[Rfam]
RNA sequence: AAGAAGCCCUGAGACACAGUUUUGUGAAUAUUGUUGUGUUUUGCCCCCGCCGUCGGGGGCAAAACACAACAAUAUUCACAAAACUGUGUCUCAGGGCUUCUU
Numbered sequence: 001a002a003g004a005a006g007c008c009c010u011g012a013g014a015c016a017c018a019g020u021u022u023u024g025u026g027a028a029u030a031u032u033g034u035u036g037u038g039u040u041u042u043g044c045c046c047c048c049g050c051c052g053u054c055g056g057g058g059g060c061a062a063a064a065c066a067c068a069a070c071a072a073u074a075u076u077c078a079c080a081a082a083a084c085u086g087u088g089u090c091u092c093a094g095g096g097c098u099u100c101u102u
Stems, first nucleotide, its partner, number of pairs: 003100009013090009023080006030073019